[Rfam]
This 82-nucleotide RNA belongs to the Rfam family "mir-156 microRNA precursor family". This family represents the plant microRNA (miRNA) precursor mir-156.

RNA sequence: CUGACAGAAGAGAGUGAGCACAUGCAGGCACUGUUAUGUGUCUAUAACUUUGCGUGUGCGUGCUCACCUCUCUUUCUGUCAG
Numbered sequence: 001c002u003g004a005c006a007g008a009a010g011a012g013a014g015u016g017a018g019c020a021c022a023u024g025c026a027g028g029c030a031c032u033g034u035u036a037u038g039u040g041u042c043u044a045u046a047a048c049u050u051u052g053c054g055u056g057u058g059c060g061u062g063c064u065c066a067c068c069u070c071u072c073u074u075u076c077u078g079u080c081a082g
Stems, first nucleotide, its partner, number of pairs: 001082009010072003014067008023058003